[Rfam]
RNA: mir-7 microRNA precursor family
RNA sequence: GGUCGCCUGCGGUGUGGAAGACUUGUGAUUUUGUUGUUCUAGGUGGCAGAACUGACAACGAGUCGCGGUCUACCUCACUGCUUUGUGACA
Number, nucleotide and partner (000 for none) at each position: 001g000002g089003u088004c087005g086006c085007c000008u000009g000010c080011g079012g078013u077014g076015u000016g074017g073018a000019a071020g070021a069022c068023u067024u000025g066026u065027g064028a063029u062030u061031u060032u000033g059034u058035u057036g056037u055038u054039c000040u000041a000042g000043g000044u000045g000046g000047c000048a000049g000050a000051a000052c000053u000054g038055a037056c036057a035058a034059c033060g031061a030062g029063u028064c027065g026066c025067g023068g022069u021070c020071u019072a000073c017074c016075u000076c014077a013078c012079u011080g010081c000082u000083u000084u000085g006086u005087g004088a003089c002090a000